This 125-nucleotide RNA from Oryza sativa belongs to the Rfam family "U11 spliceosomal RNA". The organism belongs to Oryza sativa, within Eukaryota. Rfam 15.1 lists 2,595 matches to the family in 1,202 species. The sequence is in the family's curated seed alignment. The base pairs follow the family's consensus structure, which is taken from published work.

RNA sequence: AAAAAGGGUCGGUUGGCUAUGUAUGCCACAUCCAUCCAUCCAUGGGUGCUGUAUGGCUAUCAAGACAUAUGGCCGGCAUAAUUUGUGGAAAUAGAUAGGGUUGGCUCGCUACGGCCGACCCUCCA
Dot-bracket structure: .......(((((.((((.......))))(((((((......)))))))(((((((..........))))))))))))...................((((((((.(((...)))))))))))...